[Rfam]
RNA: mir-1 microRNA precursor family
RNA sequence: ACCUUCAUCUGACGCUUCUUAGUCUCCAUAGAUAUUCUAUAAUAUCUAUGGAGACUAAGAAGUGUCAGAUGAAGGU
Numbered sequence: 001a002c003c004u005u006c007a008u009c010u011g012a013c014g015c016u017u018c019u020u021a022g023u024c025u026c027c028a029u030a031g032a033u034a035u036u037c038u039a040u041a042a043u044a045u046c047u048a049u050g051g052a053g054a055c056u057a058a059g060a061a062g063u064g065u066c067a068g069a070u071g072a073a074g075g076u
Stems, first nucleotide, its partner, number of pairs: 007070024